[Rfam]
RNA sequence: AGCCUCCUGGUGUUUACCACAGGCUAUAUUCUUACAUUGACUGUAUAGAAAGAGGAAGCAAAGUAAACCUAUGCCAUAUACACUUCAGCCUAGACCCUGUGCCCAUCUGUAUUGUGAAUGAGGAGACAUGG
Numbered sequence: 001a002g003c004c005u006c007c008u009g010g011u012g013u014u015u016a017c018c019a020c021a022g023g024c025u026a027u028a029u030u031c032u033u034a035c036a037u038u039g040a041c042u043g044u045a046u047a048g049a050a051a052g053a054g055g056a057a058g059c060a061a062a063g064u065a066a067a068c069c070u071a072u073g074c075c076a077u078a079u080a081c082a083c084u085u086c087a088g089c090c091u092a093g094a095c096c097c098u099g100u101g102c103c104c105a106u107c108u109g110u111a112u113u114g115u116g117a118a119u120g121a122g123g124a125g126a127c128a129u130g131g
Stems, first nucleotide, its partner, number of pairs: 002059002005056004020043003026037002029034001072123001075120003086109003091105001093103001095101001